[Rfam]
Nucleotides: 092
Stems, first nucleotide, its partner, number of pairs: 002087006013076004018072004026066002029063002
Number, partner (000 for none) and nucleotide at each position: 001000g002087g003086g004085c005084u006083g007082g008000c009000u010000u011000u012000a013076g014075c015074c016073c017000a018072g019071c020070g021069g022000u023000u024000c025000c026066u027065u028000c029063g030062a031000g032000u033000c034000u035000g036000g037000c038000u039000u040000c041000c042000c043000a044000a045000c046000a047000g048000c049000c050000c051000g052000g053000g054000c055000c056000g057000a058000c059000u060000g061000g062030u063029c064000c065027a066026g067000a068000c069021c070020u071019g072018c073016g074015g075014g076013c077000g078000c079000u080000c081000u082007c083006c084005a085004g086003u087002c088000c089000u090000u091000u092000a